[Rfam]
RNA sequence: GGGAGCGGAAACCACCUCCCUAACGAGGCCAGUCGGCGCGAGCGCCCAUCCACCCCUGCGCUGAUAUGGCUUUUGACCCGCCCGGUUGUCCCCCCGGGCGGGUC
Numbered sequence: 001g002g003g004a005g006c007g008g009a010a011a012c013c014a015c016c017u018c019c020c021u022a023a024c025g026a027g028g029c030c031a032g033u034c035g036g037c038g039c040g041a042g043c044g045c046c047c048a049u050c051c052a053c054c055c056c057u058g059c060g061c062u063g064a065u066a067u068g069g070c071u072u073u074u075g076a077c078c079c080g081c082c083c084g085g086u087u088g089u090c091c092c093c094c095c096g097g098g099c100g101g102g103u104c
Stems, first nucleotide, its partner, number of pairs: 001020005025072002028070004032065008075104011
RNA: Rhizobiales-2 RNA